[Rfam]
RNA sequence: GAGUGGCAUCUAUAAGUUUGAGAUGCUACCCGAUACGAUCUUCCUACAAAAAUGUCUGUAUUUUCCUCCUUGCAGUUCAAAGUCACAUCUGCGAGUCUCAGAACUGACAGAUACAUGU
Numbered sequence: 001g002a003g004u005g006g007c008a009u010c011u012a013u014a015a016g017u018u019u020g021a022g023a024u025g026c027u028a029c030c031c032g033a034u035a036c037g038a039u040c041u042u043c044c045u046a047c048a049a050a051a052a053u054g055u056c057u058g059u060a061u062u063u064u065c066c067u068c069c070u071u072g073c074a075g076u077u078c079a080a081a082g083u084c085a086c087a088u089c090u091g092c093g094a095g096u097c098u099c100a101g102a103a104c105u106g107a108c109a110g111a112u113a114c115a116u117g118u
Stems, first nucleotide, its partner, number of pairs: 001031001003029001005027007055111003069095007077087001
Shown here is a 118-nucleotide RNA sequence from Carnegiea gigantea, a member of the family "Small nucleolar RNA snoR104". The family has 8 seed sequences and 612 matches in Rfam 15.1. A search with the family's covariance model found it, with a score of 65 bits. By type it is an H/ACA-box small nucleolar RNA.